[Rfam]
RNA sequence: CGGUCAGCGGGAAGCUCUGACGCGCGGUCCAAAACCCUGGCCGCCCGGACCGCGCCGAGCCACUGGCGAGACCGACCCGCGAUGG
Numbered sequence: 001c002g003g004u005c006a007g008c009g010g011g012a013a014g015c016u017c018u019g020a021c022g023c024g025c026g027g028u029c030c031a032a033a034a035c036c037c038u039g040g041c042c043g044c045c046c047g048g049a050c051c052g053c054g055c056c057g058a059g060c061c062a063c064u065g066g067c068g069a070g071a072c073c074g075a076c077c078c079g080c081g082a083u084g085g
Stems, first nucleotide, its partner, number of pairs: 001085001003083003007080005014060002022055008039073002042068004
Overview:
Shown here is an 85-nucleotide RNA sequence, a member of the family "c-di-GMP-II-GAG riboswitch aptamer". On this family, see Weinberg et al., Proc Natl Acad Sci U S A 2017: "Bioinformatic analysis of riboswitch structures uncovers variant classes with altered ligand specificity". Its family is annotated with regulation of gene expression and cyclic-di-GMP binding in the Gene Ontology. The sequence is in the family's curated seed alignment.